[Rfam]
RNA sequence: AAAAAGGGCUUCUGCUGUGCAUGGCACGUGGGGGCUCCAUGGCUGCCCCCGCGGAAUCAACAUCAAGAGAUUUUGGAAGCACUCUUUUUGUGGGGAGGGGAUGGCUGGUAACCGCAUGUUCCAGCACCCCG
Numbered sequence: 001a002a003a004a005a006g007g008g009c010u011u012c013u014g015c016u017g018u019g020c021a022u023g024g025c026a027c028g029u030g031g032g033g034g035c036u037c038c039a040u041g042g043c044u045g046c047c048c049c050c051g052c053g054g055a056a057u058c059a060a061c062a063u064c065a066a067g068a069g070a071u072u073u074u075g076g077a078a079g080c081a082c083u084c085u086u087u088u089u090g091u092g093g094g095g096a097g098g099g100g101a102u103g104g105c106u107g108g109u110a111a112c113c114g115c116a117u118g119u120u121c122c123a124g125c126a127c128c129c130c131g
Stems, first nucleotide, its partner, number of pairs: 008080005013026005027051002030048003034044001036041001052075007098129003104125005110120003
Shown here is a 131-nucleotide sequence from Anhinga rufa, a member of the family "U11 spliceosomal RNA". Rfam classes the family as a spliceosomal small nuclear RNA.